[Rfam]
RNA sequence: GGGGAUGAUCGGUUUCGACAGCGGAUGUCGAAGCAGGGGAAGCGUGUCGAGGAAGCGGCAAUGAUCUCGUAAACCAUAUGUCGCAACCAAUAAUCGCCAACACCAAGCGCGAUUCCUUCGCCCUCGCUGCCUAAGUAGCGACUUGCGAAGUGUCAGCCCGGGGCUGUUCCCGACCCGGAUCCUGGCAUCAGCUAGGGGACUAAACCUUGAUCCCGGUCACGGGGUGAAGAGGGAAAUCAAACAGUGACUGAGCCCGUUCCGGACUUGUCUGGGUGAUCCGGAGGGCCGAGAAACUCGUACCAGACUGCACACGGAGAAGCCCUGUUUGUUCACCGUUGGACGCGGGUUCGAUUCCCGCCAUCUCCACGA
Dot-bracket structure: (((((((...........((((((..(...((((((((....((((([[[[[..((((((....]]]]].........)))))).......................................(((((((....))))))).........((((((.(((((.(.[[[[[[).)))))...)))))).......]]]]]]....[[[[......((((((........]]]]...........))))))..((((..(((.((...[[[[......)).)))))))...............]]]]...)))))......))))))))..)..))))))...(((((.......))))))))))))....
Numbered sequence: 001g002g003g004g005a006u007g008a009u010c011g012g013u014u015u016c017g018a019c020a021g022c023g024g025a026u027g028u029c030g031a032a033g034c035a036g037g038g039g040a041a042g043c044g045u046g047u048c049g050a051g052g053a054a055g056c057g058g059c060a061a062u063g064a065u066c067u068c069g070u071a072a073a074c075c076a077u078a079u080g081u082c083g084c085a086a087c088c089a090a091u092a093a094u095c096g097c098c099a100a101c102a103c104c105a106a107g108c109g110c111g112a113u114u115c116c117u118u119c120g121c122c123c124u125c126g127c128u129g130c131c132u133a134a135g136u137a138g139c140g141a142c143u144u145g146c147g148a149a150g151u152g153u154c155a156g157c158c159c160g161g162g163g164c165u166g167u168u169c170c171c172g173a174c175c176c177g178g179a180u181c182c183u184g185g186c187a188u189c190a191g192c193u194a195g196g197g198g199a200c201u202a203a204a205c206c207u208u209g210a211u212c213c214c215g216g217u218c219a220c221g222g223g224g225u226g227a228a229g230a231g232g233g234a235a236a237u238c239a240a241a242c243a244g245u246g247a248c249u250g251a252g253c254c255c256g257u258u259c260c261g262g263a264c265u266u267g268u269c270u271g272g273g274u275g276a277u278c279c280g281g282a283g284g285g286c287c288g289a290g291a292a293a294c295u296c297g298u299a300c301c302a303g304a305c306u307g308c309a310c311a312c313g314g315a316g317a318a319g320c321c322c323u324g325u326u327u328g329u330u331c332a333c334c335g336u337u338g339g340a341c342g343c344g345g346g347u348u349c350g351a352u353u354c355c356c357g358c359c360a361u362c363u364c365c366a367c368g369a
Stems, first nucleotide, its partner, number of pairs: 001365007019338006027330001031327008043313005048069005055084006124141007151187006158178005164172001166200006205232004215249006252286004258282003262278002267305004342358005

This 369-nucleotide RNA from Streptomyces xanthii belongs to the Rfam family "transfer-messenger RNA". Rfam links the family to the GO term RNA catabolic process. About the family: Bacterial tmRNA, also known as 10Sa RNA or SsrA, is named for its dual tRNA and mRNA-like properties. Its role is to liberate the mRNA from a stalled ribosome. To accomplish this part of the tmRNA is used as a reading frame that ends in a translation stop signal. The match comes from Rfam's covariance-model search (168 bits).